[Rfam]
RNA sequence: GUCCACGCAAUGGGAGGCAUCAUUUCGCCUCCGGGUGCUGACUACUCCCCGUCCCCG
Numbered sequence: 001g002u003c004c005a006c007g008c009a010a011u012g013g014g015a016g017g018c019a020u021c022a023u024u025u026c027g028c029c030u031c032c033g034g035g036u037g038c039u040g041a042c043u044a045c046u047c048c049c050c051g052u053c054c055c056c057g
Stems, first nucleotide, its partner, number of pairs: 005052003013032006033049003037045001

Insect-Specific Flavivirus 3' UTR repeats Ra: a 57-nucleotide sequence from Culex theileri flavivirus RP-2011. The family's consensus secondary structure was predicted with LocARNA. The family is grouped with related families in Rfam's "Insect-Specific Flavivirus 3' UTR repeats Ra and Rb elements". Rfam's curators put it in the seed alignment. 3' UTR in insect specific flavivirus families present three to four repeats of conserved element Ra. By type it is a cis-regulatory element. The organism belongs to Orthoflavivirus, within Viruses.